[Rfam]
RNA sequence: GGAGGCGUCUCCGGCCUGGUGGCCGGCUCGGUCUUCAACACCGGUGAGCGGCAGGUCCUGCCGCUGGCGGGUUCGAUUCCCGUCCGCCUCC
Numbered sequence: 001g002g003a004g005g006c007g008u009c010u011c012c013g014g015c016c017u018g019g020u021g022g023c024c025g026g027c028u029c030g031g032u033c034u035u036c037a038a039c040a041c042c043g044g045u046g047a048g049c050g051g052c053a054g055g056u057c058c059u060g061c062c063g064c065u066g067g068c069g070g071g072u073u074c075g076a077u078u079c080c081c082g083u084c085c086g087c088c089u090c091c
Stems, first nucleotide, its partner, number of pairs: 001091007011026006028044005047065005068082004
The record is a 91-nucleotide RNA sequence from Actinokineospora terrae, which matches "Selenocysteine transfer RNA" in Rfam. Rfam 15.1 lists 4,211 matches to the family in 3,344 species. The family's consensus secondary structure is taken from published work.